This 266-nucleotide RNA sequence from Koleobacter methoxysyntrophicus belongs to the Rfam family "raiA RNA". The family's consensus secondary structure is taken from published work. The match comes from Rfam's covariance-model search (178 bits). The organism belongs to Koleobacter, within Bacteria.

RNA sequence: UUAACUUAGGUCUGUGGUUGAAAGUCGAUGCCAGUCGCAGGCAAAACGACCCACGUAAGGUGAUAUAAAUUCACAUAUCACUGAGCAUGGUGCGGCUUAGAGGUAAGUCCUGCCCUUUUUGGAAACUGAAGGUUAAGGUUAAAUUGAGUUUAAAUGCAUUUCUGAAGGCUUUCCAAAAGGAGAGGGGAAGUAGUGGGAAGGUUUAGACCUUGAGCGAAACCUCCAGCAGGCGGGUGUGGGGGCAAAGACCAGGUCAGCUAAGGACA
Numbered sequence: 001u002u003a004a005c006u007u008a009g010g011u012c013u014g015u016g017g018u019u020g021a022a023a024g025u026c027g028a029u030g031c032c033a034g035u036c037g038c039a040g041g042c043a044a045a046a047c048g049a050c051c052c053a054c055g056u057a058a059g060g061u062g063a064u065a066u067a068a069a070u071u072c073a074c075a076u077a078u079c080a081c082u083g084a085g086c087a088u089g090g091u092g093c094g095g096c097u098u099a100g101a102g103g104u105a106a107g108u109c110c111u112g113c114c115c116u117u118u119u120u121g122g123a124a125a126c127u128g129a130a131g132g133u134u135a136a137g138g139u140u141a142a143a144u145u146g147a148g149u150u151u152a153a154a155u156g157c158a159u160u161u162c163u164g165a166a167g168g169c170u171u172u173c174c175a176a177a178a179g180g181a182g183a184g185g186g187g188a189a190g191u192a193g194u195g196g197g198a199a200g201g202u203u204u205a206g207a208c209c210u211u212g213a214g215c216g217a218a219a220c221c222u223c224c225a226g227c228a229g230g231c232g233g234g235u236g237u238g239g240g241g242g243c244a245a246a247g248a249c250c251a252g253g254u255c256a257g258c259u260a261a262g263g264a265c266a
Stems, first nucleotide, its partner, number of pairs: 001266001005262005012257003015251005028237003031041001033097007050090002058082002062078001088244001109230005114180005184223004193215002200209003